[Rfam]
RNA sequence: GGUGAAAAGGAUGAAUUCUGGGGCGCUGAUCACUGUGACUUGAAAAACGCCAUCCAUUUCCUGAUUCACC
Numbered sequence: 001g002g003u004g005a006a007a008a009g010g011a012u013g014a015a016u017u018c019u020g021g022g023g024c025g026c027u028g029a030u031c032a033c034u035g036u037g038a039c040u041u042g043a044a045a046a047a048c049g050c051c052a053u054c055c056a057u058u059u060c061c062u063g064a065u066u067c068a069c070c
Base pairs, nucleotide, nucleotide: 001070002069003068004067005066006065
The family of this 70-nucleotide sequence from Tupaia belangeri is "Small nucleolar RNA SNORD123".
The family's consensus secondary structure was predicted with WAR.